[Rfam]
RNA sequence: UUUAGACGAUAGGAGACAGUUUUGUGUCUCUGCGUUGCGAAGAACAUCGAGGUAUAACAAGAUCUGAGGCCGAGAUAUCGUUUCAGUCGUCAUUCUUUGUUGGCGAUUCGAUUGUUGCUCGUCCACAU
Numbered sequence: 001u002u003u004a005g006a007c008g009a010u011a012g013g014a015g016a017c018a019g020u021u022u023u024g025u026g027u028c029u030c031u032g033c034g035u036u037g038c039g040a041a042g043a044a045c046a047u048c049g050a051g052g053u054a055u056a057a058c059a060a061g062a063u064c065u066g067a068g069g070c071c072g073a074g075a076u077a078u079c080g081u082u083u084c085a086g087u088c089g090u091c092a093u094u095c096u097u098u099g100u101u102g103g104c105g106a107u108u109c110g111a112u113u114g115u116u117g118c119u120c121g122u123c124c125a126c127a128u
Stems, first nucleotide, its partner, number of pairs: 007037004013030006068124002071121004077112004086107007095099001
The record is a 128-nucleotide sequence from Morella rubra, which matches "Small nucleolar RNA snoR111" in Rfam. Rfam classes the family as an H/ACA-box small nucleolar RNA. NCBI's taxonomy places the organism under Eukaryota, Euphyllophyta, Pentapetalae, rosids, Morella. The literature on the family includes a 2002 paper in Curr Biol by Marker et al., "Experimental RNomics: identification of 140 candidates for small non-messenger RNAs in the plant Arabidopsis thaliana".